Chlorobi-RRM RNA: a 73-nucleotide RNA from Chlorobium phaeovibrioides.
[Rfam]
RNA sequence: AAAUCAUCCAAUGGUUGGCUGAUCGCUGACAGGUUAUGUGUGCUUUGGUUACCUGUUGAGCGUUUCUUUUUUC
Dot-bracket structure: ...(((.((((...)))).))).((((.((((((.((..........)).))))))..))))...........
The source organism's lineage runs through Bacteria, Pseudomonadati, Chlorobiota, Chlorobiaceae and Chlorobium phaeovibrioides.